[Rfam]
mir-133 microRNA precursor family: a 75-nucleotide RNA sequence from Pediculus humanus. The literature on the family includes a 2002 paper in Curr Biol by Lagos-Quintana et al., "Identification of tissue-specific microRNAs from mouse". Gene Ontology terms of the family: RISC complex and miRNA-mediated post-transcriptional gene silencing.
RNA sequence: CUUCUUUAGCUGGUUGACGCCGGGCCAAGUUUAGCCGAUUCGAGUCAUUUGGUCCCCUUCAACCAGCUGUAGUUG
Numbered sequence: 001c002u003u004c005u006u007u008a009g010c011u012g013g014u015u016g017a018c019g020c021c022g023g024g025c026c027a028a029g030u031u032u033a034g035c036c037g038a039u040u041c042g043a044g045u046c047a048u049u050u051g052g053u054c055c056c057c058u059u060c061a062a063c064c065a066g067c068u069g070u071a072g073u074u075g
Base pairs, nucleotide, nucleotide: 004072005071008068009067010066011065012064013063014062015061016060017059022054023053025052026051027050028049029048030047